[Rfam]
RNA sequence: GGUAGUUGAGGGCAGAAAUGGUUCCUGCCGCACCUUCAACAAGGUAUCUGAGAUGUUGGAUACACCGACCAACCGACUGCU
Numbered sequence: 001g002g003u004a005g006u007u008g009a010g011g012g013c014a015g016a017a018a019u020g021g022u023u024c025c026u027g028c029c030g031c032a033c034c035u036u037c038a039a040c041a042a043g044g045u046a047u048c049u050g051a052g053a054u055g056u057u058g059g060a061u062a063c064a065c066c067g068a069c070c071a072a073c074c075g076a077c078u079g080c081u
Base pairs, nucleotide, nucleotide: 001081002080003079004078005077006076007075008074011029012028013027014026015025019067020066021065022064031050032045033044034043035042055073056072057071058070059069
The family of this 81-nucleotide RNA is "skipping-rope RNA". The sequence is in the family's curated seed alignment.